[Rfam]
Nucleotides: 120
Stems, first nucleotide, its partner, number of pairs: 003118007011110006018103004023098002026095001028093008
Number, partner (000 for none) and nucleotide at each position: 001000u002000a003118u004117u005116a006115a007114a008113a009112a010000u011110u012109u013108c014107a015106u016105c017000c018103a019102u020101u021100u022000c023098u024097a025000c026095u027000g028093u029092u030091a031090a032089a033088a034087a035086u036000u037000g038000g039000c040000a041000u042000g043000g044000u045000u046000g047000a048000u049000a050000a051000a052000a053000u054000a055000a056000u057000g058000a059000a060000a061000c062000a063000g064000u065000u066000a067000u068000u069000u070000u071000g072000a073000c074000u075000u076000a077000c078000a079000g080000g081000g082000u083000c084000u085000u086035a087034u088033u089032u090031u091030u092029a093028a094000c095026a096000a097024u098023a099000a100021a101020a102019a103018u104000g105016g106015a107014u108013g109012g110011a111000u112009u113008u114007u115006u116005u117004a118003a119000c120000a
The family of this 120-nucleotide RNA from Gossypium stocksii is "MIR7502 microRNA precursor family".
Taxonomically the source falls in Gossypium (Eukaryota, Viridiplantae, Embryophyta, rosids).
The family has 6 seed sequences and 74,505 matches in Rfam 15.1.